[Rfam]
RNA sequence: GCGGGAAAAGGGCAAACCGGCUGAAAGGCCGGGACGCAAAGCCAGGAGGCUAAAGCGGAGGGAAACGCCGCCAUGCCCGUCCGGUUGCCGCA
Number, nucleotide and partner (000 for none) at each position: 001g000002c000003g000004g000005g000006a000007a000008a000009a000010g000011g000012g037013c036014a000015a000016a000017c032018c031019g030020g029021c028022u027023g000024a000025a000026a000027g022028g021029c020030c019031g018032g017033g000034a000035c000036g013037c012038a000039a000040a086041g085042c084043c083044a000045g082046g081047a080048g077049g076050c075051u000052a000053a000054a000055g071056c070057g069058g068059a000060g000061g000062g000063a000064a000065a000066c000067g000068c058069c057070g056071c055072c000073a000074u000075g050076c049077c048078c000079g000080u047081c046082c045083g043084g042085u041086u040087g000088c000089c000090g000091c000092a000

About this RNA:
c-di-GMP-I riboswitch aptamer: a 92-nucleotide sequence from Pseudoflavonifractor capillosus.